RNA: MIR7504 microRNA precursor family
Organism: Gossypium armourianum
RNA sequence: AAUAGGAGGAUGACAAAUCAGAUUUUUCCUCUUAAUUUCCAUGAAAAAAAUCAAAUCUAACUAAAAAUGCUAAAAAUCAGGAGGAAAUAUCUGAUUUGUCAUUCUCCUAUU
Numbered sequence: 001a002a003u004a005g006g007a008g009g010a011u012g013a014c015a016a017a018u019c020a021g022a023u024u025u026u027u028c029c030u031c032u033u034a035a036u037u038u039c040c041a042u043g044a045a046a047a048a049a050a051u052c053a054a055a056u057c058u059a060a061c062u063a064a065a066a067a068u069g070c071u072a073a074a075a076a077u078c079a080g081g082a083g084g085a086a087a088u089a090u091c092u093g094a095u096u097u098g099u100c101a102u103u104c105u106c107c108u109a110u111u
Stems, first nucleotide, its partner, number of pairs: 001111023025087003029083005035077004041071001